[Rfam]
FMN riboswitch aptamer (RFN element): a 123-nucleotide RNA from Ruminococcus sp. CAG:403. Pairs were carried over by alignment from the consensus structure, which is taken from published work. Rfam's curators write: The RFN element is a highly conserved domain that is found frequently in the 5'-untranslated regions of prokaryotic mRNAs that encode for flavin mononucleotide (FMN) biosynthesis and transport proteins. This element is a metabolite-dependent riboswitch that directly binds FMN in the absence of proteins. In Bacillus subtilis, the riboswitch most likely controls gene expression by causing premature transcription termination within the 5' untranslated region of the ribDEAHT operon and precluding access to the ribosome-binding site of ypaA mRNA.The FMN riboswitch structure, reported in present an FMN-bound six-stem junction, adopts a butterfly-like scaffold, stapled together by opposingly directed but nearly identically folded peripheral domains. It scores 106 bits against the family's covariance model.
RNA sequence: CAUCCGCUUCAGGGUAUUGUGUAAUUCAUAACCGGUGGUAAUAGUCCACGAGCUGCCAGAUUGGUAAGCUGAUUCGGUGUAAGUCCGAAACCGACGGUAUAGUCCGGAUGAAAGAAGAUGAUG
Numbered sequence: 001c002a003u004c005c006g007c008u009u010c011a012g013g014g015u016a017u018u019g020u021g022u023a024a025u026u027c028a029u030a031a032c033c034g035g036u037g038g039u040a041a042u043a044g045u046c047c048a049c050g051a052g053c054u055g056c057c058a059g060a061u062u063g064g065u066a067a068g069c070u071g072a073u074u075c076g077g078u079g080u081a082a083g084u085c086c087g088a089a090a091c092c093g094a095c096g097g098u099a100u101a102g103u104c105c106g107g108a109u110g111a112a113a114g115a116a117g118a119u120g121a122u123g
Base pairs, nucleotide, nucleotide: 003121004120007117008116009115010114018028019027031103032102033093034092035049036048037047038046044091045090052069053068054067073089074088075087076086077085095106096105097104